Overview: The family of this 318-nucleotide RNA from Chlamydotis macqueenii is "Small Cajal body-specific RNA 7". Its family is annotated with nucleolus and RNA processing in the Gene Ontology. The base pairs follow the family's consensus structure. By type it is a small Cajal body RNA. Rfam 15.1 lists 570 matches to the family in 531 species.
RNA sequence: UGGAGGUGAUGAAAUAGAGAUAAUUGGAUGUCUGUUUGAGUGGAGUGUGUGUGAUAAAUGGAAUUCACACCAAGUCAGACUGGGGGUGGGUUGUGGGGAAUGCGUGUGUGCGCGCAUGUAUAGAAGAGGCUUUAAACGGGGGCGCUGAUAAUGCAGUGCUGAUUCCGGAGUGCAUCUGAGGCAUGUUGUUAAAUUCUGGGGUGCCACUUUACAACAUUGCCGAUGAUUAAAGCCCAGAACAAGCCCACCAGGACAAGCCUAAGCAUCCUAAAUCUCUAACAGGUUCAUUAAUGAAAGUGAUCCUGUGAUCUGAUCCGA
Numbered sequence: 001u002g003g004a005g006g007u008g009a010u011g012a013a014a015u016a017g018a019g020a021u022a023a024u025u026g027g028a029u030g031u032c033u034g035u036u037u038g039a040g041u042g043g044a045g046u047g048u049g050u051g052u053g054a055u056a057a058a059u060g061g062a063a064u065u066c067a068c069a070c071c072a073a074g075u076c077a078g079a080c081u082g083g084g085g086g087u088g089g090g091u092u093g094u095g096g097g098g099a100a101u102g103c104g105u106g107u108g109u110g111c112g113c114g115c116a117u118g119u120a121u122a123g124a125a126g127a128g129g130c131u132u133u134a135a136a137c138g139g140g141g142g143c144g145c146u147g148a149u150a151a152u153g154c155a156g157u158g159c160u161g162a163u164u165c166c167g168g169a170g171u172g173c174a175u176c177u178g179a180g181g182c183a184u185g186u187u188g189u190u191a192a193a194u195u196c197u198g199g200g201g202u203g204c205c206a207c208u209u210u211a212c213a214a215c216a217u218u219g220c221c222g223a224u225g226a227u228u229a230a231a232g233c234c235c236a237g238a239a240c241a242a243g244c245c246c247a248c249c250a251g252g253a254c255a256a257g258c259c260u261a262a263g264c265a266u267c268c269u270a271a272a273u274c275u276c277u278a279a280c281a282g283g284u285u286c287a288u289u290a291a292u293g294a295a296a297g298u299g300a301u302c303c304u305g306u307g308a309u310c311u312g313a314u315c316c317g318a
Base pairs, nucleotide, nucleotide: 001317002316003315004314184216185215186214187213188212189211191209194203196201